[Rfam]
RNA sequence: UGAUUCAUAGCAUCUUUCUAAUCAAGGAAAUCACAGUAGAGAGUGUGACACGGUGGGACUUCAGAUCUCUGCUGCUCUUUUUCCACUGUGUUUCCUUGAUUAUAGAUAUGUGCUGGAUCA
Numbered sequence: 001u002g003a004u005u006c007a008u009a010g011c012a013u014c015u016u017u018c019u020a021a022u023c024a025a026g027g028a029a030a031u032c033a034c035a036g037u038a039g040a041g042a043g044u045g046u047g048a049c050a051c052g053g054u055g056g057g058a059c060u061u062c063a064g065a066u067c068u069c070u071g072c073u074g075c076u077c078u079u080u081u082u083c084c085a086c087u088g089u090g091u092u093u094c095c096u097u098g099a100u101u102a103u104a105g106a107u108a109u110g111u112g113c114u115g116g117a118u119c120a
Stems, first nucleotide, its partner, number of pairs: 001120007011110003016105002019102012032090006039083003
RNA: MIR1509 microRNA precursor family
Organism: Phaseolus vulgaris